[Rfam]
Annotation: This 60-nucleotide sequence belongs to the Rfam family "Transposase-1 RNA". The family's RNA type in Rfam is small RNA.

RNA sequence: CGUUAGGAGGUUACCUCUGUCGUUACCACCGCGUUGUGGAUACGGGAAUGUAGCUGUUAA
Numbered sequence: 001c002g003u004u005a006g007g008a009g010g011u012u013a014c015c016u017c018u019g020u021c022g023u024u025a026c027c028a029c030c031g032c033g034u035u036g037u038g039g040a041u042a043c044g045g046g047a048a049u050g051u052a053g054c055u056g057u058u059a060a
Stems, first nucleotide, its partner, number of pairs: 009055006020045004026039003